This 123-nucleotide sequence from Xenorhabdus bovienii belongs to the Rfam family "t44 RNA". Lineage of the source: Bacteria > Pseudomonadati > Gammaproteobacteria > Xenorhabdus > Xenorhabdus bovienii.

RNA sequence: CUCAUUUGUGUAAAUAACACACACGGAUCGACACAUACACCGGGGUGCUCUCAUGUGGUUCGCUCUUCUAUGAAUAGCUUCGCAGUCAAAGAGUCGGUGUUAUGGGAUCUGUGGAGGCAUAAC
Numbered sequence: 001c002u003c004a005u006u007u008g009u010g011u012a013a014a015u016a017a018c019a020c021a022c023a024c025g026g027a028u029c030g031a032c033a034c035a036u037a038c039a040c041c042g043g044g045g046u047g048c049u050c051u052c053a054u055g056u057g058g059u060u061c062g063c064u065c066u067u068c069u070a071u072g073a074a075u076a077g078c079u080u081c082g083c084a085g086u087c088a089a090a091g092a093g094u095c096g097g098u099g100u101u102a103u104g105g106g107a108u109c110u111g112u113g114g115a116g117g118c119a120u121a122a123c
Base pairs, nucleotide, nucleotide: 022113023112024111025110026109027108028107029106034104035103036102037101039098040097041096042095047094048093049092050091051090
Record summary: Pairs were carried over by alignment from the consensus structure, which was predicted with LocARNA.